RNA sequence: AUGAACCGAUGCCGGAGGGGGACAGGGACUGUCCGGGGGAUGACCUGCGAAAGCGGGCGGCUGCUCAGAGAGCACAACCGAUACCCCACAACACCUCAACAGCGACCGCCCCGGCGCUCAGGUAUCGUUCG
Numbered sequence: 001a002u003g004a005a006c007c008g009a010u011g012c013c014g015g016a017g018g019g020g021g022a023c024a025g026g027g028a029c030u031g032u033c034c035g036g037g038g039g040a041u042g043a044c045c046u047g048c049g050a051a052a053g054c055g056g057g058c059g060g061c062u063g064c065u066c067a068g069a070g071a072g073c074a075c076a077a078c079c080g081a082u083a084c085c086c087c088a089c090a091a092c093a094c095c096u097c098a099a100c101a102g103c104g105a106c107c108g109c110c111c112c113g114g115c116g117c118u119c120a121g122g123u124a125u126c127g128u129u130c131g
Base pairs, nucleotide, nucleotide: 002131003130004129005128007127008126009125010124011123012122013121020034021033022032023031024030036087037086038085039084044057045056046055047054048053058080059079060078062074063073064072065071066070
This 131-nucleotide sequence belongs to the Rfam family "EFASI RNA".
The family's RNA type in Rfam is small RNA.